[Rfam]
RNA: FMN riboswitch aptamer (RFN element)
Organism: Trichococcus palustris
RNA sequence: AAUAGUCUUCAGGGACGGGUGAAAAUCCCUACCGGUGGUAAAGCCCACGAGCCGUAAUGGCAGAUUCGGAUAAUUUCCGAAGCCGACAGUUAGAGUCUGGAUGAAAGAAGACAACC
Dot-bracket structure: ..(.((((((......(((.......))).[[((((((....[[))))..(((.....)))...(((((.......)))))]])).(((.....]]))).......)))))).)..